[Rfam]
Rfam assigns this 317-nucleotide sequence from Alkaliphilus metalliredigens to the family "Group II catalytic intron D1-D4-6". Group II introns are found in rRNA, tRNA and mRNA of organelles in fungi, plants and protists, and also in mRNA in bacteria.
RNA sequence: UAAGUCCCUGUCAGGUAAGGUCUAACCAACCACCUGUAUCGAGUGUUGCGCCGAUGCUGGCGACGGCAAAGGUGAAGCGUACACAUAAGUAGAGAACCAAAAUACCUAGUAUUUUGUGUGAAUCACUUAGUUGUUUUAUCUAGAGAAUCAUAUAGGCCAUAGGGGAGACCGUAAUCCCUGAAGCAUAUUCAGCCCCGUAAAAUGCAGUUCUAGAAAUAGACACAAAUGCAGAUGACGACGUGUUUAACGUCACGGAAGUCAAUACAAAAGAAUCGCUAAUGGUGAGAUUCUUGAGGGUCUGUCGGGGUCCUAGAACA
Dot-bracket structure: ...........((((...(((.[.[[..))).))))..((..((((((((((..(((((....)))))..))))...)).)))).......))..................................................................................................((((((..............................(((((((((..((((........))))...)))....(..(((((((.......]].])))))))...))))))))))))).........